RNA sequence: GGGGGUGACUGGUUUCGACUUCGUACGUGGAGACAGGGGAAGCGAGCCGAGGAAGCCGACGUCGUCUCGAGAAUCGGUCGUCGGAAACUUAUAAGCGCCAACUCUAAGUUUGACGCUGACCAGUUCGCUCUUGCCGCCUGAGGCAAGUAGCGUGGUCUGUCGGUCUGGGAGCGCCUCCGUCCCAGUUGCCGGCAUCAGCUAGGAGGCUGGCCAAUCGGUCCCGGUCGCGGGGACCGUGCGGCGAGAUCAAUCAGCGACUGGGCCCGUCGUCCGGACUCGCUCACGUGAGCCGGAGGGCCGAGUAGGGACUUAGUGAGCUGCGCUCGGAGAAGCCCUGACAAAACAACGAAGGACCCGGGUUCGAUUCCCGGCACCUCCACUG
Numbered sequence: 001g002g003g004g005g006u007g008a009c010u011g012g013u014u015u016c017g018a019c020u021u022c023g024u025a026c027g028u029g030g031a032g033a034c035a036g037g038g039g040a041a042g043c044g045a046g047c048c049g050a051g052g053a054a055g056c057c058g059a060c061g062u063c064g065u066c067u068c069g070a071g072a073a074u075c076g077g078u079c080g081u082c083g084g085a086a087a088c089u090u091a092u093a094a095g096c097g098c099c100a101a102c103u104c105u106a107a108g109u110u111u112g113a114c115g116c117u118g119a120c121c122a123g124u125u126c127g128c129u130c131u132u133g134c135c136g137c138c139u140g141a142g143g144c145a146a147g148u149a150g151c152g153u154g155g156u157c158u159g160u161c162g163g164u165c166u167g168g169g170a171g172c173g174c175c176u177c178c179g180u181c182c183c184a185g186u187u188g189c190c191g192g193c194a195u196c197a198g199c200u201a202g203g204a205g206g207c208u209g210g211c212c213a214a215u216c217g218g219u220c221c222c223g224g225u226c227g228c229g230g231g232g233a234c235c236g237u238g239c240g241g242c243g244a245g246a247u248c249a250a251u252c253a254g255c256g257a258c259u260g261g262g263c264c265c266g267u268c269g270u271c272c273g274g275a276c277u278c279g280c281u282c283a284c285g286u287g288a289g290c291c292g293g294a295g296g297g298c299c300g301a302g303u304a305g306g307g308a309c310u311u312a313g314u315g316a317g318c319u320g321c322g323c324u325c326g327g328a329g330a331a332g333c334c335c336u337g338a339c340a341a342a343a344c345a346a347c348g349a350a351g352g353a354c355c356c357g358g359g360u361u362c363g364a365u366u367c368c369c370g371g372c373a374c375c376u377c378c379a380c381u382g
Base pairs, nucleotide, nucleotide: 001378002377003376004375005374006373007372019351020350021349022348023347024346028342032339034337035336036335037334038333043326044325045324046323047322048069049068050067051066052065056084057083058082059081060080061079129155130154132152133151134150136148137147158194159193160192161191162190163189165185166184167183168182169181170180173207174206175205176204177203178202210242211241212240216236217235218234223259224258225257226256227255228254261299262298263297264296265295267293268292269291275286276285281315283311355371356370357369358368359367